[Rfam]
RNA: Bacterial RNase P class A
RNA sequence: GAAGCCCACCAGACCGCCGCUGGUGCAAGUGCCGAAAGGCCGCACUGGAGGAACGUCCGGACUGCAAAGGGCAGCGUAGCAGCUAACGGCUGUCCACCGUGAGGUGAGGAUCAGAGCAACAGAGACGAGUCGAGACGGGUAGCAAGCCACCGACGGUGUUCUAUCGGUCGCCCGCGCAAGCGGGCCAGGCUGGCGCAAGCCAGACGGUUUGCGGCGUAAGCCGCAAAGACCAUAGCCACCCGAAGCGGGCGGCGCCCGCUUCGGGUGAAACGGGCAAUCUCUACGCGCAGCAACACCAAGUAGGCACACGCUGAGCGGCGCAGUUCGCUGCGGUGUUCUCCCCGGGGCCCCCGGGUCGUGUGCGGGUAGGUGGCAUCGAGCCGGUGGGGCGACCCCCGGCCCAGAGUAAUGGCGGUCACGCGCGGGCAACCGCGUGCACAGAAUCCGGCUUAUCGGUGGGCUUCACAC
Dot-bracket structure: ((((((((((((((((((.(((((((...............)))))))....[.[.[[[[[((((...[[[[.((((((((((.....)))))(((((....)))).)((...((((............................................................................................................................................................))..)))))))))))))...((((......((((((...............................(((((.]]]])))))..)))))).....)))).......(((((.(((....))))))))..........)))))))..........................]]]]]].].).))))))))))....
Numbered sequence: 001g002a003a004g005c006c007c008a009c010c011a012g013a014c015c016g017c018c019g020c021u022g023g024u025g026c027a028a029g030u031g032c033c034g035a036a037a038g039g040c041c042g043c044a045c046u047g048g049a050g051g052a053a054c055g056u057c058c059g060g061a062c063u064g065c066a067a068a069g070g071g072c073a074g075c076g077u078a079g080c081a082g083c084u085a086a087c088g089g090c091u092g093u094c095c096a097c098c099g100u101g102a103g104g105u106g107a108g109g110a111u112c113a114g115a116g117c118a119a120c121a122g123a124g125a126c127g128a129g130u131c132g133a134g135a136c137g138g139g140u141a142g143c144a145a146g147c148c149a150c151c152g153a154c155g156g157u158g159u160u161c162u163a164u165c166g167g168u169c170g171c172c173c174g175c176g177c178a179a180g181c182g183g184g185c186c187a188g189g190c191u192g193g194c195g196c197a198a199g200c201c202a203g204a205c206g207g208u209u210u211g212c213g214g215c216g217u218a219a220g221c222c223g224c225a226a227a228g229a230c231c232a233u234a235g236c237c238a239c240c241c242g243a244a245g246c247g248g249g250c251g252g253c254g255c256c257c258g259c260u261u262c263g264g265g266u267g268a269a270a271c272g273g274g275c276a277a278u279c280u281c282u283a284c285g286c287g288c289a290g291c292a293a294c295a296c297c298a299a300g301u302a303g304g305c306a307c308a309c310g311c312u313g314a315g316c317g318g319c320g321c322a323g324u325u326c327g328c329u330g331c332g333g334u335g336u337u338c339u340c341c342c343c344g345g346g347g348c349c350c351c352c353g354g355g356u357c358g359u360g361u362g363c364g365g366g367u368a369g370g371u372g373g374c375a376u377c378g379a380g381c382c383g384g385u386g387g388g389g390c391g392a393c394c395c396c397c398g399g400c401c402c403a404g405a406g407u408a409a410u411g412g413c414g415g416u417c418a419c420g421c422g423c424g425g426g427c428a429a430c431c432g433c434g435u436g437c438a439c440a441g442a443a444u445c446c447g448g449c450u451u452a453u454c455g456g457u458g459g460g461c462u463u464c465a466c467a468c
Stems, first nucleotide, its partner, number of pairs: 001464010011453001012417007020048007053451001055449001057448005062290004069350004074286005079093005094108001095106004109281002114279002116275002294372004304363006341355005380400005386395003